Glycine riboswitch aptamer: a 103-nucleotide RNA from Spongiactinospora gelatinilytica. The family is grouped with related families in Rfam's "Glycine riboswitch clan". Lineage of the source: Bacteria > Bacillati > Actinomycetes > Streptosporangiales > Spongiactinospora.

RNA sequence: CGACCUCUGGAAAGCAGGCCGGCGGACCAAUGGCCUCGCCGAAGGUGAAAGUCCGGUUAAGAACCGGGCGAAGCUCUCAGGCACCCGUGACAGAGGGGGAGGA
Numbered sequence: 001c002g003a004c005c006u007c008u009g010g011a012a013a014g015c016a017g018g019c020c021g022g023c024g025g026a027c028c029a030a031u032g033g034c035c036u037c038g039c040c041g042a043a044g045g046u047g048a049a050a051g052u053c054c055g056g057u058u059a060a061g062a063a064c065c066g067g068g069c070g071a072a073g074c075u076c077u078c079a080g081g082c083a084c085c086c087g088u089g090a091c092a093g094a095g096g097g098g099g100a101g102g103a
Stems, first nucleotide, its partner, number of pairs: 004096006016036006038082003041078002045076001047074001051069008